The record is a 385-nucleotide RNA from Kordiimonas lacus, which matches "Alphaproteobacteria transfer-messenger RNA" in Rfam.
[Rfam]
RNA sequence: GGCCUUUAAAUCGCCCCAGGAAUUGCUUAUAUCAAGGGUGCUGCUUCGGCAGCUAUGGCGAUAAACGGUGCAUUGAGUAGCUAUUGCGGACCCGGGGGCAGUACCCGGCGCCUCCACCAGGAACGGCCUGAUUACCUGGAUAAUCAAGGCCUACGGUCACCAGACCGUUGCUGAUGGGGGCGAACCAGGAUCGACGUGUAUCGAAAGAUGUUGCUCUUCGCCCGGGAUGGCACCGCCGUGAUGGGCCACCUUAAAUAAAUGCUAACGACAACAACGUCGAGUAUGCUGUUGCUGCGUAAGCAGUCAUAGCUACUACAUUUAUAAAUUCCUGAUGGUUGACGCCAUCAGGUGGGGGUUGGGCCACCUAGCAACAGAACGGCCCACU
Number, nucleotide and partner (000 for none) at each position: 001g000002g000003c000004c000005u000006u000007u000008a000009a000010a000011u000012c000013g000014c000015c000016c000017c000018a000019g000020g000021a000022a000023u000024u000025g000026c000027u000028u000029a000030u000031a000032u000033c000034a000035a000036g000037g000038g000039u000040g053041c052042u051043g050044c049045u000046u000047c000048g000049g044050c043051a042052g041053c040054u000055a000056u000057g222058g221059c220060g219061a218062u000063a000064a000065a000066c000067g215068g214069u213070g211071c210072a209073u208074u000075g000076a000077g000078u000079a000080g000081c000082u200083a199084u198085u000086g197087c196088g195089g000090a000091c000092c108093c107094g106095g105096g104097g000098g000099c000100a000101g000102u000103a000104c096105c095106c094107g093108g092109c182110g181111c180112c179113u178114c177115c176116a000117c000118c000119a000120g000121g000122a000123a000124c000125g000126g000127c000128c000129u000130g000131a000132u000133u000134a000135c000136c000137u000138g000139g000140a000141u000142a000143a000144u000145c000146a000147a000148g000149g000150c000151c000152u000153a000154c000155g000156g000157u000158c000159a000160c000161c000162a000163g000164a000165c000166c000167g000168u000169u000170g000171c000172u000173g000174a000175u000176g115177g114178g113179g112180g111181c110182g109183a000184a000185c000186c000187a000188g000189g000190a000191u000192c000193g000194a000195c088196g087197u086198g084199u083200a082201u000202c000203g000204a000205a000206a000207g000208a073209u072210g071211u070212u000213g069214c068215u067216c000217u000218u061219c060220g059221c058222c057223c238224g237225g236226g000227a000228u248229g247230g246231c000232a000233c245234c244235g000236c225237c224238g223239u000240g000241a000242u000243g000244g234245g233246c230247c229248a228249c000250c000251u000252u000253a000254a000255a000256u000257a000258a000259a000260u000261g000262c000263u000264a000265a000266c000267g000268a000269c000270a000271a000272c000273a000274a000275c000276g000277u000278c000279g000280a000281g000282u000283a000284u000285g000286c000287u000288g000289u000290u000291g000292c000293u000294g000295c000296g000297u000298a000299a000300g000301c000302a000303g000304u000305c000306a000307u000308a000309g000310c000311u000312a000313c000314u000315a000316c000317a000318u000319u000320u000321a000322u000323a000324a000325a000326u000327u000328c000329c000330u000331g000332a000333u000334g000335g000336u000337u000338g000339a000340c000341g000342c000343c000344a000345u000346c000347a000348g000349g000350u000351g000352g366353g365354g364355g000356u000357u000358g382359g380360g000361c378362c000363a000364c354365c353366u352367a000368g000369c000370a000371a000372c000373a000374g000375a000376a000377c000378g361379g000380c359381c000382c358383a000384c000385u000
Lineage of the source: Bacteria > Pseudomonadota > Alphaproteobacteria > Kordiimonadaceae > Kordiimonas.